Annotation: Shown here is a 178-nucleotide RNA from Gordonia jinhuaensis, a member of the family "M-box riboswitch aptamer (ykoK leader)". M-box riboswitch, also know as ykoK leader is described as a metaloregulatory RNA that sense divalent metals and function as a genetic control element of genes related to divalent metal transport in bacteria. It was first reported upstream of the B.subtilis ykoK gene and genes with related functions in other bacteria.
[Rfam]
RNA sequence: GCCGCACUUCGCUAGGCGAGGCUCCUGUACGAACACAGGCCACUGAUCCGACGACGUCGAGAGACGCCCAGGGUUAGGACAGAUCUCCCCGGAUUAAGGGGUGAUCCAAAGUGGCUUCCGCCGGUUCACACCGGCGGACACGUCGUCCAGUGCCAAAGCUCUGACGAGGAAGUGCCCC
Numbered sequence: 001g002c003c004g005c006a007c008u009u010c011g012c013u014a015g016g017c018g019a020g021g022c023u024c025c026u027g028u029a030c031g032a033a034c035a036c037a038g039g040c041c042a043c044u045g046a047u048c049c050g051a052c053g054a055c056g057u058c059g060a061g062a063g064a065c066g067c068c069c070a071g072g073g074u075u076a077g078g079a080c081a082g083a084u085c086u087c088c089c090c091g092g093a094u095u096a097a098g099g100g101g102u103g104a105u106c107c108a109a110a111g112u113g114g115c116u117u118c119c120g121c122c123g124g125u126u127c128a129c130a131c132c133g134g135c136g137g138a139c140a141c142g143u144c145g146u147c148c149a150g151u152g153c154c155a156a157a158g159c160u161c162u163g164a165c166g167a168g169g170a171a172g173u174g175c176c177c178c
Base pairs, nucleotide, nucleotide: 005174006173007172008171009170010169011165013097015160016159017158020154021153022152025150026149027148029146030145031144032143039115040114041113042112043111045075046074047073048072049071055066056065057064058063082106083105084104085103088100089099090098117138118137119136120135121134122133123132